The record is an 85-nucleotide RNA sequence from Meyerozyma sp. JA9, which matches "Small nucleolar RNA R38" in Rfam. About the family: snoR38 is a C/D box small nucleolar RNA conserved across yeast, human, Arabidopsis and rice. It is encoded in the intron of elongation factor-1 gamma in both pombe and cerevisiae. snoR38 guides the methylation of 2'-O-ribose sites in 28S rRNA. Its family is annotated with nucleolus and RNA processing in the Gene Ontology. It is annotated as a C/D-box small nucleolar RNA. Rfam 15.1 lists 2,295 matches to the family in 1,305 species. The match comes from Rfam's covariance-model search (63 bits).
RNA sequence: UUACUCAAAUGAUGAGAAAAUUUUUUAAAAUUAACAGUUAUCCCUGUCUUAACAUAUUAUGUCGAGAAUUUAUACUCUGAAGUAA
Numbered sequence: 001u002u003a004c005u006c007a008a009a010u011g012a013u014g015a016g017a018a019a020a021u022u023u024u025u026u027a028a029a030a031u032u033a034a035c036a037g038u039u040a041u042c043c044c045u046g047u048c049u050u051a052a053c054a055u056a057u058u059a060u061g062u063c064g065a066g067a068a069u070u071u072a073u074a075c076u077c078u079g080a081a082g083u084a085a
Base pairs, nucleotide, nucleotide: 001085002084003083004082005081